Background
Rfam assigns this 224-nucleotide RNA sequence from Burkholderia humptydooensis to the family "Burkholderia sRNA 19". Pairs were carried over by alignment from the consensus structure, which was predicted with RNAfold. About the family: Cis-encoded, located in the 5'UTR of their cognate gene. Expression correlated with tight regulation of the gene transcript levels. For this family Rfam cites "Differential expression of small RNAs from Burkholderia thailandensis in response to varying environmental and stress conditions" (Stubben et al., BMC Genomics, 2014). Rfam's curators put it in the seed alignment.
RNA sequence: CACUUAACAUUUACAUGGUUUGCACGCCCGAUUCUCGCAGGGUUUGUUCGUGUGCCAAAGGUAGCCGGUUGCCGCGUGACGAAGGGAACAAAACGACGAAAGAGGCGAGGCCAGUGAUGCGGCCGACGAAGAUGGCGCUCGUGCUGGCGCUCGCAUGCGUCGGUUUCCUCGCUUCGGACUUCGCUCGCGCGCAGCGCCCGGACCGCGGCGCCGCGACGUCGCAC
Numbered sequence: 001c002a003c004u005u006a007a008c009a010u011u012u013a014c015a016u017g018g019u020u021u022g023c024a025c026g027c028c029c030g031a032u033u034c035u036c037g038c039a040g041g042g043u044u045u046g047u048u049c050g051u052g053u054g055c056c057a058a059a060g061g062u063a064g065c066c067g068g069u070u071g072c073c074g075c076g077u078g079a080c081g082a083a084g085g086g087a088a089c090a091a092a093a094c095g096a097c098g099a100a101a102g103a104g105g106c107g108a109g110g111c112c113a114g115u116g117a118u119g120c121g122g123c124c125g126a127c128g129a130a131g132a133u134g135g136c137g138c139u140c141g142u143g144c145u146g147g148c149g150c151u152c153g154c155a156u157g158c159g160u161c162g163g164u165u166u167c168c169u170c171g172c173u174u175c176g177g178a179c180u181u182c183g184c185u186c187g188c189g190c191g192c193a194g195c196g197c198c199c200g201g202a203c204c205g206c207g208g209c210g211c212c213g214c215g216a217c218g219u220c221g222c223a224c
Stems, first nucleotide, its partner, number of pairs: 019092004027086003032083003035079004041073003048068003053063004094221005104185005110179001111177002113173005119167001121165008129156001131154001134151006190215003194211005